Shown here is a 75-nucleotide RNA from Setophaga kirtlandii, a member of the family "mir-216 microRNA precursor family".
The source organism's lineage runs through Eukaryota, Sauria, Aves, Neoaves and Setophaga.
The literature on the family includes a 2008 paper in Gene by Shao et al., "Identification of novel chicken microRNAs and analysis of their genomic organization".
Rfam links the family to the GO terms miRNA-mediated post-transcriptional gene silencing and RISC complex.
[Rfam]
Nucleotides: 075
Stems, first nucleotide, its partner, number of pairs: 005072002010067008020058002023054002026051005
Number, partner (000 for none) and nucleotide at each position: 001000a002000g003000a004000c005072u006071g007000g008000g009000a010067a011066a012065u013064c014063u015062c016061u017060g018000c019000a020058g021057g022000c023054a024053a025000g026051u027050g028049u029048g030047a031000u032000g033000u034000g035000u036000u037000u038000g039000u040000a041000g042000c043000a044000a045000u046000c047030u048029c049028a050027c051026a052000a053024u054023u055000a056000c057021c058020u059000g060017u061016a062015g063014a064013g065012a066011u067010u068000c069000u070000a071006c072005a073000u074000c075000u